[Rfam]
RNA sequence: AGGUAACGCUCGUUACACCGGUAUCAUUACGAGCACUCGGCCGUGCUGUGGGCUGCUUUCCAGAAAGCAUGCCUUAGACGCCCGUUGUCAAUAGCGCGGUGUGAGGAGAGGUUAGAUGCCUC
Number, nucleotide and partner (000 for none) at each position: 001a000002g019003g018004u017005a000006a000007c000008g034009c033010u032011c031012g030013u029014u000015a000016c000017a004018c003019c002020g000021g000022u000023a000024u000025c000026a000027u000028u000029a013030c012031g011032a010033g009034c008035a000036c105037u104038c103039g102040g100041c099042c098043g097044u096045g095046c094047u093048g000049u000050g074051g073052g072053c071054u000055g068056c067057u066058u000059u000060c000061c000062a000063g000064a000065a000066a057067g056068c055069a000070u000071g053072c052073c051074u050075u000076a000077g089078a088079c087080g086081c000082c000083c000084g000085u000086u080087g079088u078089c077090a000091a000092u000093a047094g046095c045096g044097c043098g042099g041100u040101g000102u039103g038104a037105g036106g000107a000108g122109a121110g120111g119112u118113u000114a000115g000116a000117u000118g112119c111120c110121u109122c108
Shown here is a 122-nucleotide RNA from Alteribacillus iranensis, a member of the family "epsC RNA". The base pairs follow the family's consensus structure, which is taken from published work.